RNA sequence: CCAUGUUAAUAGCAAACCAUUCGAAAGGGUGGGACGCAAAGUCAGGAGUCUAAGGCGUUCACUCUACUGCUAAGUGAAUGCUAUGAUCGUCCGAUUGCCAUG
Dot-bracket structure: ...........((...((((((....))))))...))..((((.((((((....(((((((((.........)))))))))...)))..)))))))......